[Rfam]
RNA sequence: UCAUGUUCAGAUGAUGAUACAUGAUGUUGGUAGGGACAUCUGAGAAUAUAUGAUGAGUACCAACAUCUCUGAUGUGCAUGG
Number, nucleotide and partner (000 for none) at each position: 001u081002c080003a079004u078005g077006u000007u000008c000009a000010g000011a000012u000013g000014a000015u000016g000017a000018u000019a000020c000021a000022u000023g000024a000025u000026g000027u000028u000029g000030g000031u000032a000033g000034g000035g000036a000037c000038a000039u000040c000041u000042g000043a000044g000045a000046a000047u000048a000049u000050a000051u000052g000053a000054u000055g000056a000057g000058u000059a000060c000061c000062a000063a000064c000065a000066u000067c000068u000069c000070u000071g000072a000073u000074g000075u000076g000077c005078a004079u003080g002081g001